[Rfam]
Shown here is a 90-nucleotide RNA from Micromonospora sp. ATCC 39149, a member of the family "ZMP/ZTP riboswitch aptamer (pfl RNA motif)". Rfam links the family to the GO terms regulation of purine nucleotide biosynthetic process and one-carbon metabolic process. A search with the family's covariance model found it, with a score of 48 bits. Taxonomically the source falls in Micromonospora (Bacteria, Bacillati, Actinomycetota, Actinomycetes).
RNA sequence: GGCAUGGGCCGUGACUGGCGCGUGGGGAUGGACAACCAUCGGGAAGCGGUCCCGUCAUCAGGACGUCUGCCGAGCGCCUGGGCCUUCCGC
Number, nucleotide and partner (000 for none) at each position: 001g000002g000003c000004a000005u000006g052007g051008g050009c049010c048011g047012u046013g000014a000015c043016u042017g078018g077019c076020g075021c074022g000023u000024g000025g000026g000027g000028a039029u038030g037031g036032a000033c000034a000035a000036c031037c030038a029039u028040c000041g000042g016043g015044a000045a000046g012047c011048g010049g009050u008051c007052c006053c000054g000055u000056c000057a000058u000059c000060a000061g000062g000063a000064c000065g000066u000067c000068u000069g083070c082071c081072g000073a000074g021075c020076g019077c018078c017079u000080g000081g071082g070083c069084c000085u000086u000087c000088c000089g000090c000